[Rfam]
RNA sequence: UUCUUAUCAAGAGAGGUGGAGGGACUGGCCCGAUGAAGCCCGGCAACAGCCAGCAUUUUUUUUCGCUGGAAAUGUGCUAAAUCCUGCAGCAUAAUAGCUGAGAGAUAAGAU
Dot-bracket structure: .(((((((....(.(((...(((.[.[[)))......))))((((.((.(((((..........)))))...))))))...(]].]((((......))))..)))))))).
Numbered sequence: 001u002u003c004u005u006a007u008c009a010a011g012a013g014a015g016g017u018g019g020a021g022g023g024a025c026u027g028g029c030c031c032g033a034u035g036a037a038g039c040c041c042g043g044c045a046a047c048a049g050c051c052a053g054c055a056u057u058u059u060u061u062u063u064c065g066c067u068g069g070a071a072a073u074g075u076g077c078u079a080a081a082u083c084c085u086g087c088a089g090c091a092u093a094a095u096a097g098c099u100g101a102g103a104g105a106u107a108a109g110a111u
Stems, first nucleotide, its partner, number of pairs: 002110007013041001015040003021031003025086001027084002042078004047074002050069005082103001087100004
Shown here is a 111-nucleotide RNA sequence from Alkaliphilus peptidifermentans, a member of the family "SAM riboswitch aptamer (S box leader)". A search with the family's covariance model found it, with a score of 85 bits. Lineage of the source: Bacteria > Bacillati > Clostridia > Alkaliphilus > Alkaliphilus peptidifermentans.